This 130-nucleotide sequence from Aotus nancymaae belongs to the Rfam family "Small nucleolar RNA SNORA61". The family's RNA type in Rfam is H/ACA-box small nucleolar RNA. Rfam 15.1 lists 881 matches to the family in 421 species.
[Rfam]
RNA sequence: GUCCUCCUAUACCCUUUCCCAUCAGAUCUGAACGUUGGUCUUGGUGGUCGUAAAAGGAGGAAAACUAAUACUGAAGCUGGCCUCAAUGUUGCAAUCUGGUAUAUAGCACGUGGGCUAGUUUCAGACAGGU
Numbered sequence: 001g002u003c004c005u006c007c008u009a010u011a012c013c014c015u016u017u018c019c020c021a022u023c024a025g026a027u028c029u030g031a032a033c034g035u036u037g038g039u040c041u042u043g044g045u046g047g048u049c050g051u052a053a054a055a056g057g058a059g060g061a062a063a064a065c066u067a068a069u070a071c072u073g074a075a076g077c078u079g080g081c082c083u084c085a086a087u088g089u090u091g092c093a094a095u096c097u098g099g100u101a102u103a104u105a106g107c108a109c110g111u112g113g114g115c116u117a118g119u120u121u122c123a124g125a126c127a128g129g130u
Base pairs, nucleotide, nucleotide: 003060004059005058006057007056019047020046021045022044023043025040026039027038028037077118078117079116080115081114082113083112090108091107092106
Rfam links the family to the GO terms RNA processing and nucleolus. The family's consensus secondary structure was predicted with PFOLD.